Shown here is an 80-nucleotide RNA from Scyliorhinus torazame, a member of the family "mir-132 microRNA precursor family". Taxonomically the source falls in Scyliorhinus (Eukaryota, Bilateria, Galeomorphii, Galeoidea). Its family is annotated with miRNA-mediated post-transcriptional gene silencing and RISC complex in the Gene Ontology.
[Rfam]
RNA sequence: GGCCCCAGCGACCAUGGCUGUAGACUGUUACUAAGGUUAGAUUAACAGUAACAAUCUAAAGCCACGGUCACCGUGGAACC
Numbered sequence: 001g002g003c004c005c006c007a008g009c010g011a012c013c014a015u016g017g018c019u020g021u022a023g024a025c026u027g028u029u030a031c032u033a034a035g036g037u038u039a040g041a042u043u044a045a046c047a048g049u050a051a052c053a054a055u056c057u058a059a060a061g062c063c064a065c066g067g068u069c070a071c072c073g074u075g076g077a078a079c080c
Base pairs, nucleotide, nucleotide: 012067013066015064016063017062018061023056024055026053027052028051029050030049031048032047